[Rfam]
RNA sequence: AUGUAGUGUGACAUGCCCGUUGGGUUUUACUCUGAUGUUGUGUGUUUAAUUAUUAUUUAAUUACUUUUGGGUAACGGGGUGUUACAAUUGG
Numbered sequence: 001a002u003g004u005a006g007u008g009u010g011a012c013a014u015g016c017c018c019g020u021u022g023g024g025u026u027u028u029a030c031u032c033u034g035a036u037g038u039u040g041u042g043u044g045u046u047u048a049a050u051u052a053u054u055a056u057u058u059a060a061u062u063a064c065u066u067u068u069g070g071g072u073a074a075c076g077g078g079g080u081g082u083u084a085c086a087a088u089u090g091g
Stems, first nucleotide, its partner, number of pairs: 002091001005088001007086008016078006
Description: This 91-nucleotide RNA sequence from Medicago truncatula belongs to the Rfam family "MIR2617 microRNA precursor family". Gene Ontology terms of the family: miRNA-mediated post-transcriptional gene silencing and RISC complex. It scores 68 bits against the family's covariance model. The organism belongs to Medicago, within Eukaryota.